[Rfam]
RNA sequence: CCGACAGGCGGCCGCCUGCUCGGAUACUGACUUCGGUACCUGAUACGGCCGGGGCAG
Numbered sequence: 001c002c003g004a005c006a007g008g009c010g011g012c013c014g015c016c017u018g019c020u021c022g023g024a025u026a027c028u029g030a031c032u033u034c035g036g037u038a039c040c041u042g043a044u045a046c047g048g049c050c051g052g053g054g055c056a057g
Base pairs, nucleotide, nucleotide: 001023002022003021004020005018006017007016008015027057028056029055031054032053033052034051035050036049037048
Dot-bracket structure: ((((((((......)))).))))...(((.(((((((..........))))))))))